Rfam assigns this 79-nucleotide RNA from Operophtera brumata to the family "mir-998 microRNA precursor family".
The match comes from Rfam's covariance-model search (54 bits).
The organism belongs to Operophtera, within Eukaryota.
RNA sequence: CGGGCGCCGUCGCGAGCUGGGUUCCGUGCGGCUCCAGUGGUCCUGUAGCACCAUGGGAUUCAGCUCACGGCGGCCUCCA
Numbered sequence: 001c002g003g004g005c006g007c008c009g010u011c012g013c014g015a016g017c018u019g020g021g022u023u024c025c026g027u028g029c030g031g032c033u034c035c036a037g038u039g040g041u042c043c044u045g046u047a048g049c050a051c052c053a054u055g056g057g058a059u060u061c062a063g064c065u066c067a068c069g070g071c072g073g074c075c076u077c078c079a
Stems, first nucleotide, its partner, number of pairs: 003077002006074002009071001011069002014066002017063003022058007032048002035045002